[Rfam]
A member of the RNA family "flg-Rhizobiales RNA" from Tardiphaga robiniae, 135 nucleotides long.
RNA sequence: CGAACCGCGGCUUGGGAGAGCUGUGCGGUUUACGGGAUCCACGGCGAGCUUGGGAGAGCGAACCGCGGGAACUUAGGGGAGAACCACCGAUGGAGAAUAUGCUUCUCGUCGGACUGUCGCGGCAGAUGACGCUUC
Dot-bracket structure: .((((((((((((....))))))..))))))......(((.((....((((....))))....)).))).................(((((.(((((.....)))))))))).......................

The match comes from Rfam's covariance-model search (105 bits). Rfam classes the family as a cis-regulatory element.